Record summary:
A member of the RNA family "Bacterial RNase P class B" from Lactiplantibacillus plantarum, 375 nucleotides long.
[Rfam]
RNA sequence: AAUUCUGGGUAAUCGCGGUCGGCUUAUGUCGGCUGAGGAAGGUCCAUGCUCGCACAAGCUGCGAUGCUUGUAGUGUUCGUGCUCGGUGAAAAAAUAAGCCGGGGUACCGAUUUAUCGGUAACGGCGGAAAAAACGGCUAAGGCUUCGGCUAUGCCCGAGUAUUCCUGAAAAGUGCCACAGUGACGAUACUCAAUUGGAAACGGUUGAGUUGGAACGCGGUAAACCCCACGAGCGGGCAACCCAAACUACGGUAGGGGCGCUUCACAUAAGGAACUGAACUAAAUGUGGGGGGAGAUUAGUAAUCUCGAGAUAGAUGAUUACCGCCUAGUUAACAGACCCUGUACUUUAACUAGGUACAAAACAUGGCCUACAGGA
Number, nucleotide and partner (000 for none) at each position: 001a000002a000003u000004u375005c374006u373007g371008g322009g321010u320011a319012a318013u317014c316015g000016c035017g034018g033019u032020c031021g030022g000023c000024u000025u000026a000027u000028g000029u000030c021031g020032g019033c018034u017035g016036a000037g000038g000039a000040a369041g368042g367043u000044c366045c365046a364047u363048g362049c236050u235051c234052g233053c232054a071055c070056a069057a068058g067059c066060u000061g000062c000063g000064a000065u000066g059067c058068u057069u056070g055071u054072a000073g000074u000075g000076u000077u231078c230079g229080u228081g227082c103083u102084c101085g100086g099087u098088g000089a000090a000091a000092a000093a000094a000095u000096a000097a000098g087099c086100c085101g084102g083103g082104g122105u120106a119107c118108c117109g116110a115111u000112u000113u000114a000115u110116c109117g108118g107119u106120a105121a000122c104123g226124g225125c000126g165127g164128a163129a162130a000131a000132a000133a000134c000135g155136g154137c153138u000139a000140a000141g150142g149143c148144u000145u000146c000147g000148g143149c142150u141151a000152u000153g137154c136155c135156c000157g000158a000159g000160u000161a000162u129163u128164c127165c126166u000167g000168a000169a000170a000171a000172g224173u223174g220175c219176c218177a000178c000179a000180g000181u000182g000183a000184c000185g000186a000187u000188a000189c208190u207191c206192a205193a204194u203195u202196g201197g000198a000199a000200a000201c196202g195203g194204u193205u192206g191207a190208g189209u000210u000211g000212g000213a000214a000215c000216g000217c000218g176219g175220u174221a000222a000223a173224c172225c124226c123227c081228a080229c079230g078231a077232g053233c052234g051235g050236g049237c000238a000239a000240c256241c255242c254243a000244a000245a000246c000247u000248a000249c000250g000251g000252u000253a000254g242255g241256g240257g000258c000259g000260c290261u289262u288263c287264a286265c285266a284267u000268a000269a000270g000271g000272a000273a000274c000275u000276g000277a000278a000279c000280u000281a000282a000283a000284u266285g265286u264287g263288g262289g261290g260291g000292g306293a305294g304295a303296u302297u000298a000299g000300u000301a000302a296303u295304c294305u293306c292307g000308a000309g000310a000311u000312a000313g000314a000315u000316g014317a013318u012319u011320a010321c009322c008323g000324c354325c353326u352327a351328g350329u349330u348331a347332a346333c000334a000335g000336a000337c000338c000339c000340u000341g000342u000343a000344c000345u000346u332347u331348a330349a329350c328351u327352a326353g325354g324355u000356a000357c000358a000359a000360a000361a000362c048363a047364u046365g045366g044367c042368c041369u040370a000371c007372a000373g006374g005375a004
Ribonuclease P (RNase P) is a ubiquitous endoribonuclease, found in archaea, bacteria and eukarya as well as chloroplasts and mitochondria. Its best characterised activity is the generation of mature 5'-ends of tRNAs by cleaving the 5'-leader elements of precursor-tRNAs. Cellular RNase Ps are ribonucleoproteins. RNA from bacterial RNase Ps retains its catalytic activity in the absence of the protein subunit, i.e. it is a ribozyme. For this family Rfam cites "Ribonuclease P: unity and diversity in a tRNA processing ribozyme" (Frank and Pace, Annu Rev Biochem, 1998). It is annotated as a ribozyme.